[Rfam]
RNA sequence: GAGGUGGGCCGUGACUGGCGCGCUGGGAUGGGAUCGACCAUCGGGAAGCGGCCCCGUCAUCGUGACGCUGUGCCGUGCGCCUGGGCCCCCUUU
Numbered sequence: 001g002a003g004g005u006g007g008g009c010c011g012u013g014a015c016u017g018g019c020g021c022g023c024u025g026g027g028a029u030g031g032g033a034u035c036g037a038c039c040a041u042c043g044g045g046a047a048g049c050g051g052c053c054c055c056g057u058c059a060u061c062g063u064g065a066c067g068c069u070g071u072g073c074c075g076u077g078c079g080c081c082u083g084g085g086c087c088c089c090c091u092u093u
Stems, first nucleotide, its partner, number of pairs: 003057001006054007015045002017081005028041004070088001072086003
A member of the RNA family "ZMP/ZTP riboswitch aptamer (pfl RNA motif)" from Catellatospora sp. TT07R-123, 93 nucleotides long. The source organism's lineage runs through Bacteria, Bacillati, Actinomycetes, Micromonosporales and Catellatospora.